[Rfam]
RNA sequence: GUGCCUAAGGGAUGAACAGGUCCCCAUAGUUACAUCCAUUUCGUUCACUUUGUUGGCUAAUAACACUAAUUUUUAGCUGAUCAUUAAGGAUGGGAAAUCU
Numbered sequence: 001g002u003g004c005c006u007a008a009g010g011g012a013u014g015a016a017c018a019g020g021u022c023c024c025c026a027u028a029g030u031u032a033c034a035u036c037c038a039u040u041u042c043g044u045u046c047a048c049u050u051u052g053u054u055g056g057c058u059a060a061u062a063a064c065a066c067u068a069a070u071u072u073u074u075a076g077c078u079g080a081u082c083a084u085u086a087a088g089g090a091u092g093g094g095a096a097a098u099c100u
Base pairs, nucleotide, nucleotide: 035094036093037092038091039090040089052081053080054079055078056077057076058075059074
The family of this 100-nucleotide RNA sequence from Oryza sativa is "Small nucleolar RNA snoR99".
Rfam classes the family as an H/ACA-box small nucleolar RNA.
Rfam 15.1 lists 733 matches to the family in 222 species.
On this family, see Marker et al., Curr Biol 2002: "Experimental RNomics: identification of 140 candidates for small non-messenger RNAs in the plant Arabidopsis thaliana".
The base pairs follow the family's consensus structure, which was predicted with WAR.